RNA sequence: AAUUUUAAACAAUCUACUAGAUAACCAAGUGCAGAGAGGGUGAUACCUUGCUUGGAUUAUGUGCAUAAUUCCCGUUGCGCUUGUUGUGAGAUAUUGCAGGAAGAUAAGCAACUCUCUUCUGGGCGAUCGGAAGAGGUCAUGAAGUGUAAGAAGAUUGAGGGUGUACAUAGUAUAGAGAUUGUGCGUAGUUAGAUCAUUAUCAUACGGUGGCGGUGAUAAUAGACGCUCUCUGUGAGAGAAUAAUCUGGAUAGGCCUUAUGUAGCAGUAAGAACCAACCCAGAAAUGCUAAAAUAAACCGUUUUGCACUUGAGGCCGAGCAAUCGGCCAAUAACGCUAAAGAUAAGUAUAAGUAGCCCAAAUUGUGCAGAGAAUUUACAAGAUAUAUUGUGCUAAAAUAUUAAUCUGAAUGUCGGGUGAAAGUUGGACGUAACCAGUCGUGCCUAGCCAUUAAACCGCUACGGAAGUUACAGGGUCGCUCCUUGUGGCUCAGACCGUGGUAGGCUAUCGGUCAAUAAAUUGCGUACAAUCGAAGUAGAGCGAAGGCUCAUUUGAUAGAUUGUUUAAAG
Numbered sequence: 001a002a003u004u005u006u007a008a009a010c011a012a013u014c015u016a017c018u019a020g021a022u023a024a025c026c027a028a029g030u031g032c033a034g035a036g037a038g039g040g041u042g043a044u045a046c047c048u049u050g051c052u053u054g055g056a057u058u059a060u061g062u063g064c065a066u067a068a069u070u071c072c073c074g075u076u077g078c079g080c081u082u083g084u085u086g087u088g089a090g091a092u093a094u095u096g097c098a099g100g101a102a103g104a105u106a107a108g109c110a111a112c113u114c115u116c117u118u119c120u121g122g123g124c125g126a127u128c129g130g131a132a133g134a135g136g137u138c139a140u141g142a143a144g145u146g147u148a149a150g151a152a153g154a155u156u157g158a159g160g161g162u163g164u165a166c167a168u169a170g171u172a173u174a175g176a177g178a179u180u181g182u183g184c185g186u187a188g189u190u191a192g193a194u195c196a197u198u199a200u201c202a203u204a205c206g207g208u209g210g211c212g213g214u215g216a217u218a219a220u221a222g223a224c225g226c227u228c229u230c231u232g233u234g235a236g237a238g239a240a241u242a243a244u245c246u247g248g249a250u251a252g253g254c255c256u257u258a259u260g261u262a263g264c265a266g267u268a269a270g271a272a273c274c275a276a277c278c279c280a281g282a283a284a285u286g287c288u289a290a291a292a293u294a295a296a297c298c299g300u301u302u303u304g305c306a307c308u309u310g311a312g313g314c315c316g317a318g319c320a321a322u323c324g325g326c327c328a329a330u331a332a333c334g335c336u337a338a339a340g341a342u343a344a345g346u347a348u349a350a351g352u353a354g355c356c357c358a359a360a361u362u363g364u365g366c367a368g369a370g371a372a373u374u375u376a377c378a379a380g381a382u383a384u385a386u387u388g389u390g391c392u393a394a395a396a397u398a399u400u401a402a403u404c405u406g407a408a409u410g411u412c413g414g415g416u417g418a419a420a421g422u423u424g425g426a427c428g429u430a431a432c433c434a435g436u437c438g439u440g441c442c443u444a445g446c447c448a449u450u451a452a453a454c455c456g457c458u459a460c461g462g463a464a465g466u467u468a469c470a471g472g473g474u475c476g477c478u479c480c481u482u483g484u485g486g487c488u489c490a491g492a493c494c495g496u497g498g499u500a501g502g503c504u505a506u507c508g509g510u511c512a513a514u515a516a517a518u519u520g521c522g523u524a525c526a527a528u529c530g531a532a533g534u535a536g537a538g539c540g541a542a543g544g545c546u547c548a549u550u551u552g553a554u555a556g557a558u559u560g561u562u563u564a565a566a567g
Stems, first nucleotide, its partner, number of pairs: 008563002012559001015556001018553001020551002025055005036049004057170006074112005081102002084099001086097004113136010138146003180527001188519001190517001195509001197344004203339001206336004210300005226238004244282005252274002255270003261289004303367005313326005348421001354416004359411001403492004425441001443505003455502001458498001462494001465488001467485007536547004

Record summary:
ROOL RNA: a 567-nucleotide RNA sequence. Rfam's curators write: Firmicutes, Fusobacteria (1 example), Tenericutes (1 example).